Rfam assigns this 97-nucleotide RNA sequence from Vibrio sp. qd031 to the family "Guanidine-I riboswitch aptamer". The pairing is the family consensus, mapped onto this sequence. Rfam's curators write: This family represents a conserved RNA structure found upstream of the ykkC and yxkD genes in Bacillus subtilis and related genes in other bacteria.
RNA sequence: GAAAUAGACAUCUAGGGUUCCGGCUGCUGCGCAGUGUCUGGGUCGAGAGUUGUCAACCUCGCAAGGGGUCACACGGAGGGAUAGAAGCCCGGGAGAU
Numbered sequence: 001g002a003a004a005u006a007g008a009c010a011u012c013u014a015g016g017g018u019u020c021c022g023g024c025u026g027c028u029g030c031g032c033a034g035u036g037u038c039u040g041g042g043u044c045g046a047g048a049g050u051u052g053u054c055a056a057c058c059u060c061g062c063a064a065g066g067g068g069u070c071a072c073a074c075g076g077a078g079g080g081a082u083a084g085a086a087g088c089c090c091g092g093g094a095g096a097u
Stems, first nucleotide, its partner, number of pairs: 007054004012049001015044002020041002022038001023035005056069005072092001074095001078090003